Overview: The family of this 133-nucleotide RNA from Cavia porcellus is "Small nucleolar RNA SNORA1". A search with the family's covariance model found it, with a score of 109 bits. The family has 29 seed sequences and 1,282 matches in Rfam 15.1. From the family's description: ACA1 is a member of the H/ACA class of snoRNA that guide the sites of modification of uridines to pseudouridines. The organism belongs to Cavia, within Eukaryota.
[Rfam]
RNA sequence: AGACUCAUUGUAGAUUAGAAUGAGCACUGUCAAUUGGUGUCCAAAAUUGGUUAAAGUGGCUAAAAUUGAGACACAGGCCAUGUUUCCAUUGCAGUAAAUGCUUACAGUGGUGACAAUGAGAUCUGUGACAUUU
Numbered sequence: 001a002g003a004c005u006c007a008u009u010g011u012a013g014a015u016u017a018g019a020a021u022g023a024g025c026a027c028u029g030u031c032a033a034u035u036g037g038u039g040u041c042c043a044a045a046a047u048u049g050g051u052u053a054a055a056g057u058g059g060c061u062a063a064a065a066u067u068g069a070g071a072c073a074c075a076g077g078c079c080a081u082g083u084u085u086c087c088a089u090u091g092c093a094g095u096a097a098a099u100g101c102u103u104a105c106a107g108u109g110g111u112g113a114c115a116a117u118g119a120g121a122u123c124u125g126u127g128a129c130a131u132u133u
Base pairs, nucleotide, nucleotide: 002060004058006056008054021043022042024040025039026038027037073126074125075124076123077122087112088111089110090109091108092107